The record is a 547-nucleotide sequence, which matches "ROOL RNA" in Rfam. From the family's description: Firmicutes, Fusobacteria (1 example), Tenericutes (1 example). The sequence is in the family's curated seed alignment.

[Rfam]
RNA sequence: AUUUUAGUGAAUAUAUACUAUUAUCUCAGUGAAAACAUAAUUUCGCAGAUUAUGCUGAGGUAUACUGAAAUGGUCGGUAGUAUACGAAACAAGGAUACUUGUGGAAAUUACCGUUUUUUAUGCAGUGAUGUUUAAAAAGAAUCAAUAAAUCAAAGGUGUAGCACUAUUAUAAUCGCAGAUAAAAGCAACUAUCAUGUCGGUAACGCAAUAGACGCAUCAGAUGAUGAAGAAUCCAAGUUAGGGAAUUAGUUGGUUACUGAUUUCACACCUCGGAAAUACCAUAAGUUAUUUCGCUGUGAAGCAAGGAAACUUGUGUAUAAGAUGUGUAUAGGUUCUAAGUAGGCAAAGGCGAGAAGAAUUAAAGAAUUAAUAGUAAUGAAUUGUUGCUGAAAGGUGUAGGUAAUCAUUCCUAUCAAGGCUUGAAAUUAUUUGUGGCAGGAAUGUUAUAAGGUCGCUACUUAUAGCACAUACCUGUUUCCCUUGUGGCUGAAUAUAUCUGAAGAUUGUAUUUAGUAGAAUGAAGAUUCAAUAGUAUAUAUUCAAUAAA
Numbered sequence: 001a002u003u004u005u006a007g008u009g010a011a012u013a014u015a016u017a018c019u020a021u022u023a024u025c026u027c028a029g030u031g032a033a034a035a036c037a038u039a040a041u042u043u044c045g046c047a048g049a050u051u052a053u054g055c056u057g058a059g060g061u062a063u064a065c066u067g068a069a070a071u072g073g074u075c076g077g078u079a080g081u082a083u084a085c086g087a088a089a090c091a092a093g094g095a096u097a098c099u100u101g102u103g104g105a106a107a108u109u110a111c112c113g114u115u116u117u118u119u120a121u122g123c124a125g126u127g128a129u130g131u132u133u134a135a136a137a138a139g140a141a142u143c144a145a146u147a148a149a150u151c152a153a154a155g156g157u158g159u160a161g162c163a164c165u166a167u168u169a170u171a172a173u174c175g176c177a178g179a180u181a182a183a184a185g186c187a188a189c190u191a192u193c194a195u196g197u198c199g200g201u202a203a204c205g206c207a208a209u210a211g212a213c214g215c216a217u218c219a220g221a222u223g224a225u226g227a228a229g230a231a232u233c234c235a236a237g238u239u240a241g242g243g244a245a246u247u248a249g250u251u252g253g254u255u256a257c258u259g260a261u262u263u264c265a266c267a268c269c270u271c272g273g274a275a276a277u278a279c280c281a282u283a284a285g286u287u288a289u290u291u292c293g294c295u296g297u298g299a300a301g302c303a304a305g306g307a308a309a310c311u312u313g314u315g316u317a318u319a320a321g322a323u324g325u326g327u328a329u330a331g332g333u334u335c336u337a338a339g340u341a342g343g344c345a346a347a348g349g350c351g352a353g354a355a356g357a358a359u360u361a362a363a364g365a366a367u368u369a370a371u372a373g374u375a376a377u378g379a380a381u382u383g384u385u386g387c388u389g390a391a392a393g394g395u396g397u398a399g400g401u402a403a404u405c406a407u408u409c410c411u412a413u414c415a416a417g418g419c420u421u422g423a424a425a426u427u428a429u430u431u432g433u434g435g436c437a438g439g440a441a442u443g444u445u446a447u448a449a450g451g452u453c454g455c456u457a458c459u460u461a462u463a464g465c466a467c468a469u470a471c472c473u474g475u476u477u478c479c480c481u482u483g484u485g486g487c488u489g490a491a492u493a494u495a496u497c498u499g500a501a502g503a504u505u506g507u508a509u510u511u512a513g514u515a516g517a518a519u520g521a522a523g524a525u526u527c528a529a530u531a532g533u534a535u536a537u538a539u540u541c542a543a544u545a546a547a
Stems, first nucleotide, its partner, number of pairs: 007544002011540001019532001022529001025059005036054007061160006075113006083106001085104001087102001090101004114139007122131003168528001172505001178498001184494001185488001189331002193326006199290006215226004232274003236270002242264004247259003251281004291352005301314005336393001342388005376469003399411002415482003418431001422430002432479001435476001438473002445463006516527004